[Rfam]
RNA sequence: GGGUACAUUGCGGGGCAAAUCUCCUUUGGCAGUGGGCGUACUCUAACAAUUUGUUCAAAACAUAAACAUUUGAUGUGCAUUGAGUGAGCCACCUGCCAAAGGAGAACUUGCCCAGUAAUGCAUCC
Numbered sequence: 001g002g003g004u005a006c007a008u009u010g011c012g013g014g015g016c017a018a019a020u021c022u023c024c025u026u027u028g029g030c031a032g033u034g035g036g037c038g039u040a041c042u043c044u045a046a047c048a049a050u051u052u053g054u055u056c057a058a059a060a061c062a063u064a065a066a067c068a069u070u071u072g073a074u075g076u077g078c079a080u081u082g083a084g085u086g087a088g089c090c091a092c093c094u095g096c097c098a099a100a101g102g103a104g105a106a107c108u109u110g111c112c113c114a115g116u117a118a119u120g121c122a123u124c125c
Stems, first nucleotide, its partner, number of pairs: 006120004011115001013113006021104004027098006035090003